[Rfam]
RNA sequence: GGUCCAGAUUUGAAGUAGCGUAGAUAAGUAGGAUCAGCUGAUCGUACUAAUCUACUUUACUUCAAGUUUGUGCCC
Numbered sequence: 001g002g003u004c005c006a007g008a009u010u011u012g013a014a015g016u017a018g019c020g021u022a023g024a025u026a027a028g029u030a031g032g033a034u035c036a037g038c039u040g041a042u043c044g045u046a047c048u049a050a051u052c053u054a055c056u057u058u059a060c061u062u063c064a065a066g067u068u069u070g071u072g073c074c075c
Base pairs, nucleotide, nucleotide: 001074002073003072005070006069007068008067009066011064012063013062014061015060016059017058018057020055021054022053023052025050027048028047029046030045032043033042034041035040
RNA: mir-5928 microRNA precursor family